[Rfam]
RNA sequence: UGGACAGUAUUCGACUGUAUUCACGGCGUGAAAUAGGGGAUUACGCUGUUUUUAAAACGGAAAAUGAAUCAAUUAACAUAAUAGACUCCU
Numbered sequence: 001u002g003g004a005c006a007g008u009a010u011u012c013g014a015c016u017g018u019a020u021u022c023a024c025g026g027c028g029u030g031a032a033a034u035a036g037g038g039g040a041u042u043a044c045g046c047u048g049u050u051u052u053u054a055a056a057a058c059g060g061a062a063a064a065u066g067a068a069u070c071a072a073u074u075a076a077c078a079u080a081a082u083a084g085a086c087u088c089c090u
Stems, first nucleotide, its partner, number of pairs: 002089003010076002013074002016071002019069005027059003030052007
Overview
This 90-nucleotide sequence from Nicotiana sylvestris belongs to the Rfam family "MIR6152 microRNA precursor family". Lineage of the source: Eukaryota > Tracheophyta > Euphyllophyta > Gunneridae > Nicotiana. The match comes from Rfam's covariance-model search (82 bits).